[Rfam]
RNA sequence: GGAGUUGGUCAGGCAAUCGCUGCGUUAACAUUAAGUUUAACGGGGAGGAAAGUCCGGGCUCCAUAGAGCAGGGUGCCAGGUAACUCCUGGGGAGCGUAAGCUCACGACAAGUGCAGCAGAGAGAAUACCGCCGAUGGCUCCGUAAGGAGAACAGGUAAGGGUGAAAGGGUGCGGUAAGAGCGCACCGGGCGACUAGUAAUAGUUCGUUGCAAGGUAAACUCCACCCCGGAGCAAGACCAAAUAGGGUUCCACUACUUUUCGAAGUUAAUGCGUGGCUCGCGUUGGAACCGGGUAGGUUGCUUGAGCCUUAGAGCGAUUUAAGGCCUAGACGAAUGAUUGUCCACGACAGAACCCGGCUUAUCGACCAACUCCCACC
Numbered sequence: 001g002g003a004g005u006u007g008g009u010c011a012g013g014c015a016a017u018c019g020c021u022g023c024g025u026u027a028a029c030a031u032u033a034a035g036u037u038u039a040a041c042g043g044g045g046a047g048g049a050a051a052g053u054c055c056g057g058g059c060u061c062c063a064u065a066g067a068g069c070a071g072g073g074u075g076c077c078a079g080g081u082a083a084c085u086c087c088u089g090g091g092g093a094g095c096g097u098a099a100g101c102u103c104a105c106g107a108c109a110a111g112u113g114c115a116g117c118a119g120a121g122a123g124a125a126u127a128c129c130g131c132c133g134a135u136g137g138c139u140c141c142g143u144a145a146g147g148a149g150a151a152c153a154g155g156u157a158a159g160g161g162u163g164a165a166a167g168g169g170u171g172c173g174g175u176a177a178g179a180g181c182g183c184a185c186c187g188g189g190c191g192a193c194u195a196g197u198a199a200u201a202g203u204u205c206g207u208u209g210c211a212a213g214g215u216a217a218a219c220u221c222c223a224c225c226c227c228g229g230a231g232c233a234a235g236a237c238c239a240a241a242u243a244g245g246g247u248u249c250c251a252c253u254a255c256u257u258u259u260c261g262a263a264g265u266u267a268a269u270g271c272g273u274g275g276c277u278c279g280c281g282u283u284g285g286a287a288c289c290g291g292g293u294a295g296g297u298u299g300c301u302u303g304a305g306c307c308u309u310a311g312a313g314c315g316a317u318u319u320a321a322g323g324c325c326u327a328g329a330c331g332a333a334u335g336a337u338u339g340u341c342c343a344c345g346a347c348a349g350a351a352c353c354c355g356g357c358u359u360a361u362c363g364a365c366c367a368a369c370u371c372c373c374a375c376c
Stems, first nucleotide, its partner, number of pairs: 001372010011361001012341007020045002023042006050359003054356005059231004066277001069274001071226005076090005091105001092103004106221002111219002113215002128160002130156003137152001138149004168186006187210001188208005193202003235298004245289006268282005305324008
Shown here is a 376-nucleotide sequence from Alteromonadales bacterium alter-6D02, a member of the family "Bacterial RNase P class A". Rfam classes the family as a ribozyme. The base pairs follow the family's consensus structure, which is taken from published work. Lineage of the source: Bacteria > Pseudomonadati > Pseudomonadota > Gammaproteobacteria > Alteromonadales.